Shown here is a 58-nucleotide sequence from Hibiscus trionum, a member of the family "Plastid-psbA-3 3UTR RNA". About the family: Plastid psbA-3 is a non-coding RNA (ncRNA) present in plastids. It was identified in inverted repeat sequences in the 3 prime untranslate region (3UTR) of photosystem II quinone-binding protein (psbA). Its Rfam clan is "Plastid-psbA 3UTR RNA clan". The literature on the family includes a 2023 paper in Plant Commun by Richter et al., "Retrograde signaling in plants: A critical review focusing on the GUN pathway and beyond".

RNA sequence: AAAUGAGCAAUAACCAUUUUCUUGUUCAAUCAAAAGUGUUGGUAUUGCUCCUUUAUUU
Number, nucleotide and partner (000 for none) at each position: 001a054002a053003a052004u000005g050006a049007g048008c047009a046010a045011u044012a043013a000014c041015c000016a000017u000018u000019u036020u035021c000022u033023u032024g031025u000026u000027c000028a000029a000030u000031c024032a023033a022034a000035a020036g019037u000038g000039u000040u000041g014042g000043u012044a011045u010046u009047g008048c007049u006050c005051c000052u003053u002054u001055a000056u000057u000058u000